[Rfam]
RNA sequence: AAAGCACCAAUGAUGUUACAUCCGUACUCAUCCUUGCACUAUGAGGUUACCAGUGAAGAAAAGCAUUGGGGAAUAUGUAGUCUGAGGUGCUC
Numbered sequence: 001a002a003a004g005c006a007c008c009a010a011u012g013a014u015g016u017u018a019c020a021u022c023c024g025u026a027c028u029c030a031u032c033c034u035u036g037c038a039c040u041a042u043g044a045g046g047u048u049a050c051c052a053g054u055g056a057a058g059a060a061a062a063g064c065a066u067u068g069g070g071g072a073a074u075a076u077g078u079a080g081u082c083u084g085a086g087g088u089g090c091u092c
Stems, first nucleotide, its partner, number of pairs: 003091006
Rfam assigns this 92-nucleotide sequence from Oryza barthii to the family "Small nucleolar RNA snoR26". The family's RNA type in Rfam is C/D-box small nucleolar RNA. A search with the family's covariance model found it, with a score of 74 bits. The family has 8 seed sequences and 611 matches in Rfam 15.1. The literature on the family includes a 2001 paper in RNA by Brown et al., "Multiple snoRNA gene clusters from Arabidopsis".